[Rfam]
Background
The family of this 97-nucleotide RNA sequence from Rodentibacter rarus is "Aggregatibacter sRNA 22". For this family Rfam cites "Small RNA repertoires and their intraspecies variation in Aggregatibacter actinomycetemcomitans" (Oogai et al., DNA Res, 2017).
RNA sequence: GUGCGGUCACAAAAAACAACGUUUUUUGAACGUUGGCUCUGCCAACGGCUCCGAAGGAGUGAGUAAACCACGUUAGUGAUUUACGAAUAAUUUUGAC
Number, nucleotide and partner (000 for none) at each position: 001g000002u000003g000004c000005g000006g000007u000008c000009a000010c028011a027012a026013a025014a024015a023016a022017c021018a000019a000020c000021g017022u016023u015024u014025u013026u012027u011028g010029a000030a000031c047032g046033u045034u044035g043036g042037c041038u000039c000040u000041g037042c036043c035044a034045a033046c032047g031048g060049c059050u058051c057052c056053g000054a000055a000056g052057g051058a050059g049060u048061g000062a000063g084064u083065a082066a081067a080068c000069c078070a077071c076072g000073u000074u000075a000076g071077u070078g069079a000080u067081u066082u065083a064084c063085g000086a000087a094088u000089a000090a000091u000092u000093u000094u087095g000096a000097c000